[Rfam]
RNA sequence: UCAGGAGAGGUUCUAGAACAACCCUCUAUAAAAAACUAAGGAACG
Numbered sequence: 001u002c003a004g005g006a007g008a009g010g011u012u013c014u015a016g017a018a019c020a021a022c023c024c025u026c027u028a029u030a031a032a033a034a035a036c037u038a039a040g041g042a043a044c045g
Stems, first nucleotide, its partner, number of pairs: 006027005016037001